[Rfam]
RNA sequence: GCAUGGAUGAAUUCUGCUUUAGCUUUUGCAGUAGCUAUUGCAGUCAGACACCAUGCUAAAUGGAAUUUCAUUUGUACUUUUUCUUUCUGAUGCAACCAAAUCUUACUGGGUGUCAUCAGAGUUACAUCUGAAUACAGUU
Numbered sequence: 001g002c003a004u005g006g007a008u009g010a011a012u013u014c015u016g017c018u019u020u021a022g023c024u025u026u027u028g029c030a031g032u033a034g035c036u037a038u039u040g041c042a043g044u045c046a047g048a049c050a051c052c053a054u055g056c057u058a059a060a061u062g063g064a065a066u067u068u069c070a071u072u073u074g075u076a077c078u079u080u081u082u083c084u085u086u087c088u089g090a091u092g093c094a095a096c097c098a099a100a101u102c103u104u105a106c107u108g109g110g111u112g113u114c115a116u117c118a119g120a121g122u123u124a125c126a127u128c129u130g131a132a133u134a135c136a137g138u139u
Stems, first nucleotide, its partner, number of pairs: 001056006014043004067132003073126004085121008093112002096109002
Background
Rfam assigns this 139-nucleotide RNA sequence from Xenopus tropicalis to the family "Small nucleolar RNA SNORA15". Rfam 15.1 lists 974 matches to the family in 624 species. A reference for the family is Huttenhofer et al. (2001), "RNomics: an experimental approach that identifies 201 candidates for novel, small, non-messenger RNAs in mouse", EMBO J. ACA15 is a member of the H/ACA class of snoRNA that guide the sites of modification of uridines to pseudouridines. The source organism's lineage runs through Eukaryota, Deuterostomia, Chordata, Pipidae and Silurana.